[Rfam]
RNA sequence: GGUAACCAAAUAUGACGGCUGGAUUAAGGGUUGGAUUCGUCACCAAUCUGACAUCUUGGAUAUCAGGAUCGUACAACCCACCCCAAAACAUACCUCGAGCUGCAAACAGCAGGGCAUAGAAUCCCAAAAUGAGUAGAUGAUGCCCGAGUAUACGGCUAAGCUGCUCUGUGUUAUCCCA
Numbered sequence: 001g002g003u004a005a006c007c008a009a010a011u012a013u014g015a016c017g018g019c020u021g022g023a024u025u026a027a028g029g030g031u032u033g034g035a036u037u038c039g040u041c042a043c044c045a046a047u048c049u050g051a052c053a054u055c056u057u058g059g060a061u062a063u064c065a066g067g068a069u070c071g072u073a074c075a076a077c078c079c080a081c082c083c084c085a086a087a088a089c090a091u092a093c094c095u096c097g098a099g100c101u102g103c104a105a106a107c108a109g110c111a112g113g114g115c116a117u118a119g120a121a122u123c124c125c126a127a128a129a130u131g132a133g134u135a136g137a138u139g140a141u142g143c144c145c146g147a148g149u150a151u152a153c154g155g156c157u158a159a160g161c162u163g164c165u166c167u168g169u170g171u172u173a174u175c176c177c178a
Base pairs, nucleotide, nucleotide: 136175137174138173139172140171141170145168146167148165